Background: Shown here is a 115-nucleotide RNA from Marisediminitalea aggregata, a member of the family "Histidine operon leader". A search with the family's covariance model found it, with a score of 73 bits. By type it is a cis-regulatory leader. Rfam describes the family as follows. At least 6 amino acid operons are known to be regulated by attenuation. In each a leader sequence of 150-200 bp is found upstream of the first gene in the operon. This leader sequence can assume two different secondary structures known as the terminator and the anti-terminator structure. In each case the leader also codes for very short peptide sequence that is rich in the end product amino acid of the operon. The terminator structure is recognised as a termination signal for RNA polymerase and the operon is not transcribed. This structure forms when the cell has an excess of the regulatory amino acid and ribosome movement over the leader transcript is not impeded. When there is a deficiency of the charged tRNA of the regulatory amino acid the ribosome translating the leader peptide stalls and the antiterminator structure can form. This allows RNA polymerase to transcribe the operon. In the Rfam alignment the consensus structure is of the terminator structure. Taxonomically the source falls in Marisediminitalea (Bacteria, Pseudomonadati, Alteromonadales, Alteromonadaceae).

[Rfam]
RNA sequence: GCAUCACCACCAUCACAAAGCAUAACCUUUCAGGUUUGUGCUGGAAGGUUAUUAUUUCCUUCCAGUGGCGCAGAUAAAGUUAUCGACCCCCGGAAGGAAACUUCCGGGGGUUUUU
Numbered sequence: 001g002c003a004u005c006a007c008c009a010c011c012a013u014c015a016c017a018a019a020g021c022a023u024a025a026c027c028u029u030u031c032a033g034g035u036u037u038g039u040g041c042u043g044g045a046a047g048g049u050u051a052u053u054a055u056u057u058c059c060u061u062c063c064a065g066u067g068g069c070g071c072a073g074a075u076a077a078a079g080u081u082a083u084c085g086a087c088c089c090c091c092g093g094a095a096g097g098a099a100a101c102u103u104c105c106g107g108g109g110g111u112u113u114u115u
Base pairs, nucleotide, nucleotide: 008040009039010038012035013034014033020031041065042064043063044062045061046060047059048058085112086111087110088109089108090107091106092105093104094103095102096101